Shown here is a 135-nucleotide RNA sequence from Phytophthora nicotianae, a member of the family "U11 spliceosomal RNA". The family's RNA type in Rfam is spliceosomal small nuclear RNA.
RNA sequence: AAAAAGGGCAGGCCUUGCCUAAGGCACAGUACGGGCGGCCAUGCCGCCCUUGUGGUGAAUCGCGAUCAAGAGAUUUGCCCUGCAUAAUUUCUGAGCGGCCGCGUUGGAAUGGGUCUGUGAGGCUAAUUCCACCGG
Numbered sequence: 001a002a003a004a005a006g007g008g009c010a011g012g013c014c015u016u017g018c019c020u021a022a023g024g025c026a027c028a029g030u031a032c033g034g035g036c037g038g039c040c041a042u043g044c045c046g047c048c049c050u051u052g053u054g055g056u057g058a059a060u061c062g063c064g065a066u067c068a069a070g071a072g073a074u075u076u077g078c079c080c081u082g083c084a085u086a087a088u089u090u091c092u093g094a095g096c097g098g099c100c101g102c103g104u105u106g107g108a109a110u111g112g113g114u115c116u117g118u119g120a121g122g123c124u125a126a127u128u129c130c131a132c133c134g135g
Stems, first nucleotide, its partner, number of pairs: 008083005013024004025054005033049007055078007101133001103132002106130005113123004

Description
Gene Ontology terms of the family: U11 snRNP, pre-mRNA 5'-splice site binding and mRNA 5'-splice site recognition. The literature on the family includes a 2008 paper in J Mol Evol by Marz et al., "Evolution of spliceosomal snRNA genes in metazoan animals". The family is grouped with related families in Rfam's "U1 clan". Lineage of the source: Eukaryota > Sar > Stramenopiles > Oomycota > Phytophthora nicotianae.